[Rfam]
Shown here is a 129-nucleotide sequence from Cucumis melo, a member of the family "Small nucleolar RNA snoR74". The base pairs follow the family's consensus structure, which was predicted with WAR. It scores 108 bits against the family's covariance model. Its family is annotated with nucleolus and RNA processing in the Gene Ontology. The family has 9 seed sequences and 1,404 matches in Rfam 15.1.
RNA sequence: AUAAAAGCAGGGCUCUGUUGCCUUGAGUGAACAGUGCUCUCGUAAACUUCAGGGACAUUACAUGCAUUGUUAUUGGGUGAACCUCUGUAAACAAUAAUUUCUGAAGGUUCAGUAAAUGAUGCUACAUUA
Numbered sequence: 001a002u003a004a005a006a007g008c009a010g011g012g013c014u015c016u017g018u019u020g021c022c023u024u025g026a027g028u029g030a031a032c033a034g035u036g037c038u039c040u041c042g043u044a045a046a047c048u049u050c051a052g053g054g055a056c057a058u059u060a061c062a063u064g065c066a067u068u069g070u071u072a073u074u075g076g077g078u079g080a081a082c083c084u085c086u087g088u089a090a091a092c093a094a095u096a097a098u099u100u101c102u103g104a105a106g107g108u109u110c111a112g113u114a115a116a117u118g119a120u121g122c123u124a125c126a127u128u129a
Stems, first nucleotide, its partner, number of pairs: 005049003011038002015034003065121007078111007